[Rfam]
RNA sequence: CCCCCGCUUCACCUCCCUGAGCGGGGCCUUGCGGCGCACCCCGCCCCAAGGCUUUCACGCCCGGCCCUGACCGGGCUUCUUUUU
Dot-bracket structure: ..((((((...........))))))((((((...............))))))......((((((......))))))........
RNA: Burkholderia RNA 7 (anti-hemB)
Organism: Pulveribacter suum